[Rfam]
Nucleotides: 090
Stems, first nucleotide, its partner, number of pairs: 002090007
Number, partner (000 for none) and nucleotide at each position: 001000g002090g003089a004088g005087c006086a007085u008084c009000a010000a011000u012000g013000a014000u015000g016000u017000g018000u019000u020000a021000c022000a023000u024000c025000c026000a027000c028000u029000u030000g031000u032000u033000a034000u035000c036000c037000u038000u039000g040000c041000a042000c043000u044000u045000u046000g047000a048000u049000u050000g051000u052000u053000a054000g055000u056000g057000a058000a059000g060000a061000a062000a063000c064000u065000a066000a067000u068000g069000g070000g071000g072000a073000a074000a075000a076000c077000a078000u079000u080000c081000u082000g083000a084008g085007a086006u087005g088004c089003u090002c
The family of this 90-nucleotide sequence from Nelumbo nucifera is "Small nucleolar RNA snoR26". Rfam links the family to the GO terms RNA processing and nucleolus. On this family, see Brown et al., RNA 2001: "Multiple snoRNA gene clusters from Arabidopsis". A search with the family's covariance model found it, with a score of 87 bits. NCBI's taxonomy places the organism under Eukaryota, Euphyllophyta, Magnoliopsida, Nelumbonaceae, Nelumbo.